RNA sequence: UUAAAGUGGAGCAGCAACCACUACAUCAAACGAGGCGGAAUCCGAAAAGCCUAAUGAGUAGGAAACAA
Dot-bracket structure: .....((((........))))............(((....[[......))).........]]......
Shown here is a 68-nucleotide RNA sequence from Tenacibaculum sp. MAR_2009_124, a member of the family "DUF805 RNA". Its Rfam clan is "DUF805 clan". Pairs were carried over by alignment from the consensus structure, which is taken from published work. The source organism's lineage runs through Bacteria, Pseudomonadati, Flavobacteriia, Flavobacteriaceae and Tenacibaculum.